[Rfam]
Nucleotides: 148
Base pairs, nucleotide, nucleotide: 003066004065005064006063007062008061010060011059018053019052020051021050022048023047024045025044026043077141078140079139080138081137082136086131087130089128090127091126092125093124098119099118100117
Number, partner (000 for none) and nucleotide at each position: 001000c002000u003066g004065c005064a006063c007062g008061a009000u010060g011059c012000c013000u014000c015000c016000c017000a018053g019052g020051c021050u022048u023047c024045g025044c026043u027000g028000a029000u030000u031000a032000c033000a034000a035000a036000c037000c038000c039000c040000u041000g042000a043026g044025g045024u046000a047023g048022a049000a050021a051020g052019u053018c054000c055000c056000a057000a058000a059011g060010c061008u062007c063006g064005u065004g066003c067000u068000a069000a070000a071000g072000c073000a074000u075000c076000u077141g078140c079139c080138g081137u082136u083000u084000a085000g086131u087130g088000u089128u090127g091126c092125a093124g094000u095000u096000u097000a098119g099118c100117c101000u102000u103000u104000u105000g106000u107000a108000c109000c110000u111000u112000u113000c114000c115000a116000c117100g118099g119098c120000u121000u122000u123000u124093c125092u126091g127090u128089g129000u130087c131086a132000a133000a134000u135000c136082a137081a138080c139079g140078g141077c142000u143000a144000c145000a146000u147000c148000u